[Rfam]
RNA sequence: UGCCCCGUGAUGUAAACGGCAGCAUGACUGAUUCUGGUUCAGUUCAGCCUUGGUUCGAAUCCAGGCGGGGCAG
Dot-bracket structure: (((((((..((((........)))).(((((.......))))).....(((((.......)))))))))))).
RNA: tRNA